Fluoride riboswitch aptamer (crcB RNA motif): a 71-nucleotide RNA from Desulfuromonas acetoxidans.
RNA sequence: CAUGUUAACGGGAAUGGAGUUCUCCCGGUAACCGCCUGUCGAUUUUUCAGGCUGAUGACUCCUGUAUGAGG
Numbered sequence: 001c002a003u004g005u006u007a008a009c010g011g012g013a014a015u016g017g018a019g020u021u022c023u024c025c026c027g028g029u030a031a032c033c034g035c036c037u038g039u040c041g042a043u044u045u046u047u048c049a050g051g052c053u054g055a056u057g058a059c060u061c062c063u064g065u066a067u068g069a070g071g
Stems, first nucleotide, its partner, number of pairs: 010026004016062006034052004